Description:
Shown here is a 179-nucleotide sequence from Thermotoga maritima, a member of the family "Lysine riboswitch aptamer". The organism belongs to Thermotoga maritima, within Bacteria. Riboswitches are metabolite binding domains within certain messenger RNAs that serve as precision sensors for their corresponding targets.
[Rfam]
RNA sequence: UGACCCGACGGAGGCGCGCCCGAGAUGAGUAGGCUGUCCCAUCAGGGGAGGAAUCGGGGACGGCUGAAAGGCGAGGGCGCCGAAGGGUGCAGAGUUCCUCCCGCUCUGCAUGCCUGGGGGUAUGGGGAAUACCCAUACCACUGUCACGGAGGUCUCUCCGUGGAGAGCCGAUCGGGUCU
Numbered sequence: 001u002g003a004c005c006c007g008a009c010g011g012a013g014g015c016g017c018g019c020c021c022g023a024g025a026u027g028a029g030u031a032g033g034c035u036g037u038c039c040c041a042u043c044a045g046g047g048g049a050g051g052a053a054u055c056g057g058g059g060a061c062g063g064c065u066g067a068a069a070g071g072c073g074a075g076g077g078c079g080c081c082g083a084a085g086g087g088u089g090c091a092g093a094g095u096u097c098c099u100c101c102c103g104c105u106c107u108g109c110a111u112g113c114c115u116g117g118g119g120g121u122a123u124g125g126g127g128a129a130u131a132c133c134c135a136u137a138c139c140a141c142u143g144u145c146a147c148g149g150a151g152g153u154c155u156c157u158c159c160g161u162g163g164a165g166a167g168c169c170g171a172u173c174g175g176g177u178c179u
Stems, first nucleotide, its partner, number of pairs: 006174003009170003016080006024072001032065008084115003087111009116142002119139008144163007